mir-196 microRNA precursor family: a 74-nucleotide RNA sequence from Eptatretus burgeri.
RNA sequence: GUUGUGAUUUAGGUAGUUUCAUGUUGUUGGGAGGUCGACAAUGUUCGACAGCAAGAAACUGCCUUGAUCAUACC
Numbered sequence: 001g002u003u004g005u006g007a008u009u010u011a012g013g014u015a016g017u018u019u020c021a022u023g024u025u026g027u028u029g030g031g032a033g034g035u036c037g038a039c040a041a042u043g044u045u046c047g048a049c050a051g052c053a054a055g056a057a058a059c060u061g062c063c064u065u066g067a068u069c070a071u072a073c074c
Stems, first nucleotide, its partner, number of pairs: 003072007011064009022053010
The base pairs follow the family's consensus structure, which was predicted with PFOLD.